[Rfam]
RNA: Glycine riboswitch aptamer
Organism: Amycolatopsis arida
RNA sequence: CGAACCCGCGCGGGAGAGACCGGGCCACCGACAGUGGGCCCGGCGCCGAAGGAGCAACUCCUCCCCGGAACCUCUCAGGCACCAGGACCGCGCGGGUGAG
Numbered sequence: 001c002g003a004a005c006c007c008g009c010g011c012g013g014g015a016g017a018g019a020c021c022g023g024g025c026c027a028c029c030g031a032c033a034g035u036g037g038g039c040c041c042g043g044c045g046c047c048g049a050a051g052g053a054g055c056a057a058c059u060c061c062u063c064c065c066c067g068g069a070a071c072c073u074c075u076c077a078g079g080c081a082c083c084a085g086g087a088c089c090g091c092g093c094g095g096g097u098g099a100g
Base pairs, nucleotide, nucleotide: 006095007094008093009092010091011090012089013088020043021042022041023040024039025038026037045080046079047078048076049075052074053073054072058068059067